[Rfam]
RNA sequence: UUACUGGCCACUCCCCGUGCUGCGACAGGUGCUUCCGGCUGUGUUAAUAAUUGCGAGUCAGGUACCUGAAGUAGCGCGCGGAGUGGCUCGGAA
Dot-bracket structure: ........((((.(.(((((((........((.(..(((.................))).)))........))))))).).))))........

The family of this 93-nucleotide RNA sequence from Daphnia pulex is "mir-275 microRNA precursor family". On this family, see Liu et al., BMC Genomics 2010: "MicroRNAs of Bombyx mori identified by Solexa sequencing".